[Rfam]
RNA sequence: AGGCAACUUAGAAAACCUCAAGUAGAAUAUUAGUUUCUACUUGGCAAUAUGUAGUUGCUAGAUAAACUUGGGAAUUCCAAAGUGGCUCCUGCAUAUACCCUGCGAAUGCCAUCAUUUCACCUCCCAAACAUAU
Numbered sequence: 001a002g003g004c005a006a007c008u009u010a011g012a013a014a015a016c017c018u019c020a021a022g023u024a025g026a027a028u029a030u031u032a033g034u035u036u037c038u039a040c041u042u043g044g045c046a047a048u049a050u051g052u053a054g055u056u057g058c059u060a061g062a063u064a065a066a067c068u069u070g071g072g073a074a075u076u077c078c079a080a081a082g083u084g085g086c087u088c089c090u091g092c093a094u095a096u097a098c099c100c101u102g103c104g105a106a107u108g109c110c111a112u113c114a115u116u117u118c119a120c121c122u123c124c125c126a127a128a129c130a131u132a133u
Stems, first nucleotide, its partner, number of pairs: 003058004008051001011048001018044005024038003062133003068127006082112005090104001
RNA: Small nucleolar RNA SNORA14
Organism: Ladona fulva